The family of this 79-nucleotide RNA from Oncorhynchus tshawytscha is "Small nucleolar RNA SNORD72".
RNA sequence: UCUUUGUCAAUGAUGCAUUCAGUAACAAUGUCUGAACUUAUGAAUUUCAGUGAUUCUUAUUUAUUAACUGAGACAAAGA
Dot-bracket structure: .(((((((...............................................................))))))).
The organism belongs to Oncorhynchus, within Eukaryota.
It scores 53 bits against the family's covariance model.
From the family's description: snoRNA HBII-240 belongs to the CD family of snoRNAs. It is the human orthologue of the mouse MBII-240 and is predicted to guide 2'O-ribose methylation of the large 28S rRNA at residue U4590.